RNA sequence: UUGUCCCUGGGCUAUUUGCCAGUUGCGAAAAGCCUCGAGCCUAUUUUACGAAUUUAGGGGACGCCGAGACGAUGAUGUGUGCAUGUCUGCUCUGCAGAAAGCCUAAUUCAUCGCGGGGGUCACCGCCUUGAACUGCUUGGUUCAAGGUCUUCCGCGACAGCGGUAGUUUGGGGACACA
Numbered sequence: 001u002u003g004u005c006c007c008u009g010g011g012c013u014a015u016u017u018g019c020c021a022g023u024u025g026c027g028a029a030a031a032g033c034c035u036c037g038a039g040c041c042u043a044u045u046u047u048a049c050g051a052a053u054u055u056a057g058g059g060g061a062c063g064c065c066g067a068g069a070c071g072a073u074g075a076u077g078u079g080u081g082c083a084u085g086u087c088u089g090c091u092c093u094g095c096a097g098a099a100a101g102c103c104u105a106a107u108u109c110a111u112c113g114c115g116g117g118g119g120u121c122a123c124c125g126c127c128u129u130g131a132a133c134u135g136c137u138u139g140g141u142u143c144a145a146g147g148u149c150u151u152c153c154g155c156g157a158c159a160g161c162g163g164u165a166g167u168u169u170g171g172g173g174a175c176a177c178a
Stems, first nucleotide, its partner, number of pairs: 002176014017162003032148004037143005058124002060121003064117002070113006081102002086098005